[Rfam]
RNA sequence: GGGGUCCUUUGGGCCCUAUAAUAUGCAAGACCCAACUGUUUUGCACAUAAAACGGAAGACAGAAA
Numbered sequence: 001g002g003g004g005u006c007c008u009u010u011g012g013g014c015c016c017u018a019u020a021a022u023a024u025g026c027a028a029g030a031c032c033c034a035a036c037u038g039u040u041u042u043g044c045a046c047a048u049a050a051a052a053c054g055g056a057a058g059a060c061a062g063a064a065a
Base pairs, nucleotide, nucleotide: 001017002016003015004014006013007012024045025044026043027042028041029040030039
RNA: L2-Alphaproteobacteria ribosomal protein leader